[Rfam]
RNA sequence: UGGAAAUGAUGAAAUAGAGAUACUGGGUGUGGUUGAAUGGUGUAUGAUGUGCCGGGGGGGUGGGGAGGUUUAGUCGUAAAAUUAAGUUUUAGUAUUAGUGUAAAUUUUAAUGGUUUGAUUUUGUACGACUGGAUAUAAGGCUACGGUCAGGGGGCACUGACUCAGUAGUGUUGAUUUUGGAGUGCAUCUGAGGCUGUUGCUCAAAUACGUGGGCCUCAUUAGCAACAUUGCCAGUGAUUAUAGCCCCAAAAUAGCUCACCCGACUAGCUUAGCACCCAAAAAUCUCUAACGGUUUCAUCGAUGUGGACCUGUGAUCUGAUCCAA
Numbered sequence: 001u002g003g004a005a006a007u008g009a010u011g012a013a014a015u016a017g018a019g020a021u022a023c024u025g026g027g028u029g030u031g032g033u034u035g036a037a038u039g040g041u042g043u044a045u046g047a048u049g050u051g052c053c054g055g056g057g058g059g060g061u062g063g064g065g066a067g068g069u070u071u072a073g074u075c076g077u078a079a080a081a082u083u084a085a086g087u088u089u090u091a092g093u094a095u096u097a098g099u100g101u102a103a104a105u106u107u108u109a110a111u112g113g114u115u116u117g118a119u120u121u122u123g124u125a126c127g128a129c130u131g132g133a134u135a136u137a138a139g140g141c142u143a144c145g146g147u148c149a150g151g152g153g154g155c156a157c158u159g160a161c162u163c164a165g166u167a168g169u170g171u172u173g174a175u176u177u178u179g180g181a182g183u184g185c186a187u188c189u190g191a192g193g194c195u196g197u198u199g200c201u202c203a204a205a206u207a208c209g210u211g212g213g214c215c216u217c218a219u220u221a222g223c224a225a226c227a228u229u230g231c232c233a234g235u236g237a238u239u240a241u242a243g244c245c246c247c248a249a250a251a252u253a254g255c256u257c258a259c260c261c262g263a264c265u266a267g268c269u270u271a272g273c274a275c276c277c278a279a280a281a282a283u284c285u286c287u288a289a290c291g292g293u294u295u296c297a298u299c300g301a302u303g304u305g306g307a308c309c310u311g312u313g314a315u316c317u318g319a320u321c322c323a324a
Base pairs, nucleotide, nucleotide: 001323002322003321004320195227196226197225198224199223200222201221205216208213

Notes
The family of this 324-nucleotide RNA from Ornithorhynchus anatinus is "Small Cajal body-specific RNA 7". Lineage of the source: Eukaryota > Metazoa > Chordata > Dipnotetrapodomorpha > Ornithorhynchus. The pairing is the family consensus, mapped onto this sequence. It is annotated as a small Cajal body RNA.